[Rfam]
RNA sequence: CGCCCCAUGUAGUAAUGCAUGGGGUGACUGGGCAGAAGUCAGCAGAUGGCAUAGUAGUGGAUUCUUAACAGAUGAAGCGAAGGCC
Numbered sequence: 001c002g003c004c005c006c007a008u009g010u011a012g013u014a015a016u017g018c019a020u021g022g023g024g025u026g027a028c029u030g031g032g033c034a035g036a037a038g039u040c041a042g043c044a045g046a047u048g049g050c051a052u053a054g055u056a057g058u059g060g061a062u063u064c065u066u067a068a069c070a071g072a073u074g075a076a077g078c079g080a081a082g083g084c085c
Base pairs, nucleotide, nucleotide: 001026002025004023005022006021007020008019009018010017011016038047039046040045048085049084050083057078058077063071

The record is an 85-nucleotide RNA sequence from endosymbiont of Escarpia spicata, which matches "Group II catalytic intron D1-D4-1" in Rfam. A search with the family's covariance model found it, with a score of 66 bits. Rfam 15.1 lists 2,508 matches to the family in 1,144 species. Taxonomically the source falls in sulfur-oxidizing symbionts (Bacteria, Pseudomonadati, Pseudomonadota, Gammaproteobacteria). Group II introns are found in rRNA, tRNA and mRNA of organelles in fungi, plants and protists, and also in mRNA in bacteria.